Record summary: The record is a 206-nucleotide RNA from Oryza barthii, which matches "MIR812 microRNA precursor family" in Rfam. Rfam 15.1 lists 57,451 matches to the family in 24 species.
RNA sequence: AAAAGGAUAAACCCUAGAUUUCCGUGUCCAACGUUUGACCGUCCGUCUUAUUUGAAAAAAUUAUGAAAAAAUUAAAAAGACAAGUCACGCAUAAAGUAUUAAUCAUGUUUUAUCAUCUAACAACAAUGAAAAUACUAAUUAUAAAAAAAUUUUAUAUAAGACGGAUAGUCAAACGUUAGACACGAAAAUGAAGAGUUUGUUUUUUU
Numbered sequence: 001a002a003a004a005g006g007a008u009a010a011a012c013c014c015u016a017g018a019u020u021u022c023c024g025u026g027u028c029c030a031a032c033g034u035u036u037g038a039c040c041g042u043c044c045g046u047c048u049u050a051u052u053u054g055a056a057a058a059a060a061u062u063a064u065g066a067a068a069a070a071a072u073u074a075a076a077a078a079g080a081c082a083a084g085u086c087a088c089g090c091a092u093a094a095a096g097u098a099u100u101a102a103u104c105a106u107g108u109u110u111u112a113u114c115a116u117c118u119a120a121c122a123a124c125a126a127u128g129a130a131a132a133u134a135c136u137a138a139u140u141a142u143a144a145a146a147a148a149a150u151u152u153u154a155u156a157u158a159a160g161a162c163g164g165a166u167a168g169u170c171a172a173a174c175g176u177u178a179g180a181c182a183c184g185a186a187a188a189u190g191a192a193g194a195g196u197u198u199g200u201u202u203u204u205u206u
Stems, first nucleotide, its partner, number of pairs: 027180002030177003034173006041166011
Rfam links the family to the GO terms RISC complex and miRNA-mediated post-transcriptional gene silencing. The base pairs follow the family's consensus structure, which was predicted with RNAalifold.